RNA sequence: UGCCGGGUGUGUGCCGAAUACAAGACCCUUCGGGGGAAUAAAGCCGCCGACCAUUGCCGGUUUUGAGCACCCGGCGCCCAUUCU
Numbered sequence: 001u002g003c004c005g006g007g008u009g010u011g012u013g014c015c016g017a018a019u020a021c022a023a024g025a026c027c028c029u030u031c032g033g034g035g036g037a038a039u040a041a042a043g044c045c046g047c048c049g050a051c052c053a054u055u056g057c058c059g060g061u062u063u064u065g066a067g068c069a070c071c072c073g074g075c076g077c078c079c080a081u082u083c084u
Stems, first nucleotide, its partner, number of pairs: 001076009013044002017039001026035003046061004
Dot-bracket structure: (((((((((...((..(........(((....)))...)...)).((((........))))......)))))))))........

Background
The record is an 84-nucleotide sequence, which matches "sRNA-Xcc1" in Rfam. The family's RNA type in Rfam is small RNA. The family's consensus secondary structure was predicted with RNAalifold.